[Rfam]
RNA sequence: GUUUCCCGGGCCAUCGGCCCGGGCCUCAUUGAAGC
Numbered sequence: 001g002u003u004u005c006c007c008g009g010g011c012c013a014u015c016g017g018c019c020c021g022g023g024c025c026u027c028a029u030u031g032a033a034g035c
Stems, first nucleotide, its partner, number of pairs: 005023007
Source information:
A member of the RNA family "CRISPR RNA direct repeat element" from Propylenella binzhouense, 35 nucleotides long. Pairs were carried over by alignment from the consensus structure, which was predicted with WAR. Its family is annotated with defense response in the Gene Ontology. NCBI's taxonomy places the organism under Bacteria, Pseudomonadati, Pseudomonadota, Propylenellaceae, Propylenella. It scores 35 bits against the family's covariance model. Rfam 15.1 lists 1,291 matches to the family in 43 species.